RNA: Eukaryotic small subunit ribosomal RNA, nucleotides 1648 to 1815
RNA sequence: CCGCCCGUCGCUACUACCGAUUGAAUGAUUUAGUGAGGUCUUCGGACCGAUGUCCGGCGCGGCCUUUCGGUUGCGCCGGUCUGUUGGAAAGAUGACCAAACUUGAUCAUUUAGAGGAAGUAAAAGUCGUAACAAGGUUUCCGUAGGUGAACCUGCGGAAGGAUCAUUA
Numbered sequence: 001c002c003g004c005c006c007g008u009c010g011c012u013a014c015u016a017c018c019g020a021u022u023g024a025a026u027g028a029u030u031u032a033g034u035g036a037g038g039u040c041u042u043c044g045g046a047c048c049g050a051u052g053u054c055c056g057g058c059g060c061g062g063c064c065u066u067u068c069g070g071u072u073g074c075g076c077c078g079g080u081c082u083g084u085u086g087g088a089a090a091g092a093u094g095a096c097c098a099a100a101c102u103u104g105a106u107c108a109u110u111u112a113g114a115g116g117a118a119g120u121a122a123a124a125g126u127c128g129u130a131a132c133a134a135g136g137u138u139u140c141c142g143u144a145g146g147u148g149a150a151c152c153u154g155c156g157g158a159a160g161g162a163u164c165a166u167u168a
Stems, first nucleotide, its partner, number of pairs: 001135001003132001006128002009125001012121004017116002021112001023111008032102003037097004042092002047087005052081001054079010137160010